[Rfam]
RNA sequence: CCCUUAAAUAAUAAAAAGUCCGUUUAGUUCGCUUAACUUUAUUGAAAGUAACGAUUUGGUCCCUUCUGUUAAUUUAAUUCAAAAAAACGUUAAAUUUUAGUCCCUUAACUUAUUUAAUUAGUAUUAGUUUGGUAUCUAAACUUAACGUUUUUUUGAAUUAAAUUAACAGAAAGGACCAAACCGAUACUUUAAAUAAAGUUAAGGAAUCUAAACGGACCUUUUAUUACUUAUGGGA
Numbered sequence: 001c002c003c004u005u006a007a008a009u010a011a012u013a014a015a016a017a018g019u020c021c022g023u024u025u026a027g028u029u030c031g032c033u034u035a036a037c038u039u040u041a042u043u044g045a046a047a048g049u050a051a052c053g054a055u056u057u058g059g060u061c062c063c064u065u066c067u068g069u070u071a072a073u074u075u076a077a078u079u080c081a082a083a084a085a086a087a088c089g090u091u092a093a094a095u096u097u098u099a100g101u102c103c104c105u106u107a108a109c110u111u112a113u114u115u116a117a118u119u120a121g122u123a124u125u126a127g128u129u130u131g132g133u134a135u136c137u138a139a140a141c142u143u144a145a146c147g148u149u150u151u152u153u154u155g156a157a158u159u160a161a162a163u164u165a166a167c168a169g170a171a172a173g174g175a176c177c178a179a180a181c182c183g184a185u186a187c188u189u190u191a192a193a194u195a196a197a198g199u200u201a202a203g204g205a206a207u208c209u210a211a212a213c214g215g216a217c218c219u220u221u222u223a224u225u226a227c228u229u230a231u232g233g234g235a
Stems, first nucleotide, its partner, number of pairs: 002233002005230003023212003027208001029206001032203012045190003